[Rfam]
RNA sequence: GGGGCUGCACUGGUUUCGACAUGGGUUCGGACGCGUGGCAGGGCAUGUCGAGGUUCUGAUCCUCGUAAAACAGCAGAAAACAAACUAACUGCAAACGACGAACGUUUCGCACUCGCCGCUUAAUCCGGUGAGCCUUGCAACAGUUGGCCGAUAGGCUGGGUCAGGGUGAUGAGGGGGUUAAACCCCUCAAAGUCCUGGCUGCAAGGUAAAACAUAUGGGCUGGCAUCACCUCGGGUACCUUGAGGUGGUGUGAGAAAAAAGGGUACUGGCUGGGUGUUCAGCGUGUCGCUGCGCGGUUCAUUUGGCGAGACUCAAAUCAGACGACUACACAUGUAGAACUGUACGAAAAAGGCUUGUGGACGCGGGUUCAAAUCCCGCCAGCUCCACCA
Numbered sequence: 001g002g003g004g005c006u007g008c009a010c011u012g013g014u015u016u017c018g019a020c021a022u023g024g025g026u027u028c029g030g031a032c033g034c035g036u037g038g039c040a041g042g043g044c045a046u047g048u049c050g051a052g053g054u055u056c057u058g059a060u061c062c063u064c065g066u067a068a069a070a071c072a073g074c075a076g077a078a079a080a081c082a083a084a085c086u087a088a089c090u091g092c093a094a095a096c097g098a099c100g101a102a103c104g105u106u107u108c109g110c111a112c113u114c115g116c117c118g119c120u121u122a123a124u125c126c127g128g129u130g131a132g133c134c135u136u137g138c139a140a141c142a143g144u145u146g147g148c149c150g151a152u153a154g155g156c157u158g159g160g161u162c163a164g165g166g167u168g169a170u171g172a173g174g175g176g177g178u179u180a181a182a183c184c185c186c187u188c189a190a191a192g193u194c195c196u197g198g199c200u201g202c203a204a205g206g207u208a209a210a211a212c213a214u215a216u217g218g219g220c221u222g223g224c225a226u227c228a229c230c231u232c233g234g235g236u237a238c239c240u241u242g243a244g245g246u247g248g249u250g251u252g253a254g255a256a257a258a259a260a261g262g263g264u265a266c267u268g269g270c271u272g273g274g275u276g277u278u279c280a281g282c283g284u285g286u287c288g289c290u291g292c293g294c295g296g297u298u299c300a301u302u303u304g305g306c307g308a309g310a311c312u313c314a315a316a317u318c319a320g321a322c323g324a325c326u327a328c329a330c331a332u333g334u335a336g337a338a339c340u341g342u343a344c345g346a347a348a349a350a351g352g353c354u355u356g357u358g359g360a361c362g363c364g365g366g367u368u369c370a371a372a373u374c375c376c377g378c379c380a381g382c383u384c385c386a387c388c389a
Stems, first nucleotide, its partner, number of pairs: 001385007020358008034345003038342004044333005049065005054078005060072001112132007133206006147220003151216002223251009233267002238262001269306008281294003285325004291317001362378005